[Rfam]
RNA sequence: ACUUGUCUGCCGUUCGAACAACAAGAACGAACUCUACGUAAUGCCGGGAUACCCGUGGCAGCGAUAGCUGUUUGCCUGUUCGAAAACUUUUUGGGAGGUGUGAGAUGCGGC
Numbered sequence: 001a002c003u004u005g006u007c008u009g010c011c012g013u014u015c016g017a018a019c020a021a022c023a024a025g026a027a028c029g030a031a032c033u034c035u036a037c038g039u040a041a042u043g044c045c046g047g048g049a050u051a052c053c054c055g056u057g058g059c060a061g062c063g064a065u066a067g068c069u070g071u072u073u074g075c076c077u078g079u080u081c082g083a084a085a086a087c088u089u090u091u092u093g094g095g096a097g098g099u100g101u102g103a104g105a106u107g108c109g110g111c
Base pairs, nucleotide, nucleotide: 009111010110011109012108013107018101019100020099028074029073030072031071032070034067035066036065037063038062039061042060043059044058045057046056047054048053075098076097077096079095080094081093082092083091084090085089